A member of the RNA family "RT-14 RNA", 151 nucleotides long. The family's RNA type in Rfam is small RNA. It is one of the family's seed sequences.
[Rfam]
RNA sequence: CUCUAAUACAUUUUCUAGAUUAUAUAUUUUACGGAAUAUAUACAAUGAAAGUAUUAGUAUUAAAGAGAUUUAUCCCAUCCUAAUUUAGGUAAACAUGAAUCAGCAUGCAACAUAUAAGUAGGCUUUUAUAAGUAGAACUUAUGUGGCAUGC
Numbered sequence: 001c002u003c004u005a006a007u008a009c010a011u012u013u014u015c016u017a018g019a020u021u022a023u024a025u026a027u028u029u030u031a032c033g034g035a036a037u038a039u040a041u042a043c044a045a046u047g048a049a050a051g052u053a054u055u056a057g058u059a060u061u062a063a064a065g066a067g068a069u070u071u072a073u074c075c076c077a078u079c080c081u082a083a084u085u086u087a088g089g090u091a092a093a094c095a096u097g098a099a100u101c102a103g104c105a106u107g108c109a110a111c112a113u114a115u116a117a118g119u120a121g122g123c124u125u126u127u128a129u130a131a132g133u134a135g136a137a138c139u140u141a142u143g144u145g146g147c148a149u150g151c
Stems, first nucleotide, its partner, number of pairs: 003057007014048002021042009079089004103151006110144005122133004